A member of the RNA family "Small nucleolar RNA U2-30" from Dasypus novemcinctus, 70 nucleotides long. The literature on the family includes a 2004 paper in Curr Biol by Tycowski et al., "Guide RNAs with 5' Caps and Novel Box C/D snoRNA-like Domains for Modification of snRNAs in Metazoa". Lineage of the source: Eukaryota > Bilateria > Sarcopterygii > Tetrapoda > Dasypus. It is one of the family's seed sequences.

[Rfam]
RNA sequence: GAGCAUGAUGAGAAGGUUUCAUGACUGACCUUUUAUAAUUAUGAAGGCUUCUACACUUGACCUGAGCUCA
Numbered sequence: 001g002a003g004c005a006u007g008a009u010g011a012g013a014a015g016g017u018u019u020c021a022u023g024a025c026u027g028a029c030c031u032u033u034u035a036u037a038a039u040u041a042u043g044a045a046g047g048c049u050u051c052u053a054c055a056c057u058u059g060a061c062c063u064g065a066g067c068u069c070a
Stems, first nucleotide, its partner, number of pairs: 001069004012033007